[Rfam]
RNA sequence: UACCGGCAUCCAAUUGGGGAUGACCGAAGGACCAAUCGGGGUCAACAGA
Numbered sequence: 001u002a003c004c005g006g007c008a009u010c011c012a013a014u015u016g017g018g019g020a021u022g023a024c025c026g027a028a029g030g031a032c033c034a035a036u037c038g039g040g041g042u043c044a045a046c047a048g049a
Base pairs, nucleotide, nucleotide: 004026005025006024007022008021009020010019011018030043031042032041033040
This 49-nucleotide RNA belongs to the Rfam family "gut-2 RNA". The family's consensus secondary structure is taken from published work. Rfam's curators put it in the seed alignment.